[Rfam]
Shown here is a 391-nucleotide sequence from Saliterribacillus persicus, a member of the family "Bacterial RNase P class B".
From the family's description: Ribonuclease P (RNase P) is a ubiquitous endoribonuclease, found in archaea, bacteria and eukarya as well as chloroplasts and mitochondria. Its best characterised activity is the generation of mature 5'-ends of tRNAs by cleaving the 5'-leader elements of precursor-tRNAs. Cellular RNase Ps are ribonucleoproteins. RNA from bacterial RNase Ps retains its catalytic activity in the absence of the protein subunit, i.e. it is a ribozyme.
Its Rfam clan is "RNaseP clan".
It is annotated as a ribozyme.
The match comes from Rfam's covariance-model search (296 bits).
RNA sequence: AAUGUCGAAGUAAUCGCUGCAUAGAUUAUGAUCUAUUGUAGAGGAAAGUCCAUGCUCACACAUGUUGAGAUGCAUGUAGUGUUCGUGCUUAACGAAAUCAUAAGUUAAGGUAACUGUUUAGCAGUUAACGGCUGGUACCCUGCCUAAGUCUUAGGAUAUGGUAGGUUCACCUAUAAAAGUGCCACAGUGACGAAGUCAAAAUGGAAACAUUUUGAGUGGAACGAGGUAAACCCCACGAGUGAGCAACCCAAAUAUUGGUAGGGGCAUCUUCGAUUAGGGAAUUCAACCGAAAGAAGGACAAGUAUUACUACUUGUAGACAGAUGAUUACUCCUUGCGUACAAGGCUGACCACCGCUCGUAGUACUAAUAGGACAAAACAUGGCUUACUGAC
Numbered sequence: 001a002a003u004g005u006c007g008a009a010g011u012a013a014u015c016g017c018u019g020c021a022u023a024g025a026u027u028a029u030g031a032u033c034u035a036u037u038g039u040a041g042a043g044g045a046a047a048g049u050c051c052a053u054g055c056u057c058a059c060a061c062a063u064g065u066u067g068a069g070a071u072g073c074a075u076g077u078a079g080u081g082u083u084c085g086u087g088c089u090u091a092a093c094g095a096a097a098u099c100a101u102a103a104g105u106u107a108a109g110g111u112a113a114c115u116g117u118u119u120a121g122c123a124g125u126u127a128a129c130g131g132c133u134g135g136u137a138c139c140c141u142g143c144c145u146a147a148g149u150c151u152u153a154g155g156a157u158a159u160g161g162u163a164g165g166u167u168c169a170c171c172u173a174u175a176a177a178a179g180u181g182c183c184a185c186a187g188u189g190a191c192g193a194a195g196u197c198a199a200a201a202u203g204g205a206a207a208c209a210u211u212u213u214g215a216g217u218g219g220a221a222c223g224a225g226g227u228a229a230a231c232c233c234c235a236c237g238a239g240u241g242a243g244c245a246a247c248c249c250a251a252a253u254a255u256u257g258g259u260a261g262g263g264g265c266a267u268c269u270u271c272g273a274u275u276a277g278g279g280a281a282u283u284c285a286a287c288c289g290a291a292a293g294a295a296g297g298a299c300a301a302g303u304a305u306u307a308c309u310a311c312u313u314g315u316a317g318a319c320a321g322a323u324g325a326u327u328a329c330u331c332c333u334u335g336c337g338u339a340c341a342a343g344g345c346u347g348a349c350c351a352c353c354g355c356u357c358g359u360a361g362u363a364c365u366a367a368u369a370g371g372a373c374a375a376a377a378c379a380u381g382g383c384u385u386a387c388u389g390a391c
Stems, first nucleotide, its partner, number of pairs: 004391003007387001009330007017041005046385003050382005055243005060077006083238005088109006110129001111127006130233002134171003141163004148157003179231002181227003196215008247263003267297005298315006332370002334367001337364004